[Rfam]
RNA sequence: ACACGGGAAAGGAGGUGGUCCAGCAGAUGAAUUCUUUGCGGACUCGUGAGGUGGCUGCGCGCUAGCAGCUCCCGGCCAUGCCGUGUUCGAGCGGCUGGCGGAAUCCACCGCAGUUACCCAACCCGCGGGCGUGCCGGAUUUAGUCCCCGGCGACCUUGCCGCAUGGCAAGACGCCCGCGGGUUGUUUACG
Numbered sequence: 001a002c003a004c005g006g007g008a009a010a011g012g013a014g015g016u017g018g019u020c021c022a023g024c025a026g027a028u029g030a031a032u033u034c035u036u037u038g039c040g041g042a043c044u045c046g047u048g049a050g051g052u053g054g055c056u057g058c059g060c061g062c063u064a065g066c067a068g069c070u071c072c073c074g075g076c077c078a079u080g081c082c083g084u085g086u087u088c089g090a091g092c093g094g095c096u097g098g099c100g101g102a103a104u105c106c107a108c109c110g111c112a113g114u115u116a117c118c119c120a121a122c123c124c125g126c127g128g129g130c131g132u133g134c135c136g137g138a139u140u141u142a143g144u145c146c147c148c149g150g151c152g153a154c155c156u157u158g159c160c161g162c163a164u165g166g167c168a169a170g171a172c173g174c175c176c177g178c179g180g181g182u183u184g185u186u187u188a189c190g
Stems, first nucleotide, its partner, number of pairs: 015058005060100007068092004074086001119184013133151005
This 190-nucleotide RNA sequence from a Propionibacteriales bacterium belongs to the Rfam family "Actinobacteria sRNA Ms_IGR-5". The family's RNA type in Rfam is small RNA. A reference for the family is Li et al. (2013), "Identification of small RNAs in Mycobacterium smegmatis using heterologous Hfq", RNA. Taxonomically the source falls in Propionibacteriales (Bacteria, Bacillati, Actinomycetota, Actinomycetes).